Notes:
The family of this 262-nucleotide RNA sequence from Bacillus sp. FJAT-27231 is "BsrG". bsrE, bsrG and bsrH pair through intermolecular interactions with antisense sRNAs. They form type I toxin/antitoxin system that includes an mRNA encoding for a short, toxic peptide (bsrE, bsrG and bsrH) and an antitoxin that is comprised of an antisense RNA. bsrG encodes a 39-amino-acid toxin, and the 180 nucleotide antisense sRNA called SR4 acts as the antitoxin (they overlap by 123 nucleotides). SR4 interaction with the 3'UTR of bsrG RNA promotes bsrG degradation and inhibits its translation. BsrG interferes with cell envelope biosynthesis, causes membrane invaginations and delocalisation of the cell wall synthesis and initiates autolysis. bsrE RNA encodes 30 amino-acid toxin peptide. Lineage of the source: Bacteria > Bacillati > Bacilli > Bacillaceae > Bacillus. For this family Rfam cites "A multistress responsive type I toxin-antitoxin system: bsrE/SR5 from the B. subtilis chromosome" (Muller et al., RNA Biol, 2016).
RNA sequence: AAGCAAUAGAAUAGGCUUCUCAAGGGUGGUCGGCACACUCCUCCAAUGAAAAAGGAGGGAGGUGAUGCCGUAUGACAACGUUUGAAACACUCAUGUUUGCAGUCGCUUUUGCAGGCUUAGUCGUGUCGAUUUUGUCAUUCCAUAAAAAAGACUAAAACCGCCCUUGAGUUUACCCAGCUCCGGCGGUUUUAGCAUGUUAGAUGCUGAUCCCCUAGAAGGGACCUGCUAUUGCAUAGCCGUUUCGAUGUGCCCAGCAUCGAAA
Number, nucleotide and partner (000 for none) at each position: 001a234002a000003g232004c231005a230006a000007u228008a227009g226010a000011a224012u000013a000014g000015g000016c000017u207018u206019c168020u167021c166022a165023a164024g163025g162026g161027u000028g158029g000030u156031c000032g000033g000034c000035a000036c064037a063038c000039u059040c058041c057042u056043c055044c000045a000046a000047u000048g000049a000050a000051a000052a000053a000054g000055g043056a042057g041058g040059g039060a000061g000062g000063u037064g036065a000066u000067g000068c000069c000070g000071u000072a000073u000074g136075a135076c134077a133078a132079c000080g130081u000082u000083u000084g000085a000086a000087a000088c000089a000090c000091u000092c000093a000094u000095g000096u000097u000098u000099g000100c000101a000102g000103u000104c000105g000106c000107u000108u000109u000110u128111g127112c000113a000114g000115g000116c000117u000118u000119a000120g000121u000122c000123g000124u000125g000126u000127c111128g110129a000130u080131u000132u078133u077134g076135u075136c074137a000138u000139u000140c000141c000142a000143u000144a000145a000146a000147a000148a000149a000150g000151a000152c000153u000154a000155a000156a030157a000158c028159c000160g000161c026162c025163c024164u023165u022166g021167a020168g019169u000170u000171u000172a000173c000174c000175c000176a000177g000178c200179u199180c000181c000182g000183g000184c000185g000186g000187u000188u000189u000190u000191a000192g000193c000194a000195u000196g000197u000198u000199a179200g178201a000202u000203g000204c000205u000206g018207a017208u221209c220210c219211c218212c000213u000214a000215g000216a000217a000218g211219g210220g209221a208222c000223c000224u011225g000226c009227u008228a007229u000230u005231g004232c003233a000234u001235a000236g000237c000238c000239g000240u262241u261242u260243c259244g258245a257246u256247g255248u254249g000250c000251c000252c000253a000254g248255c247256a246257u245258c244259g243260a242261a241262a240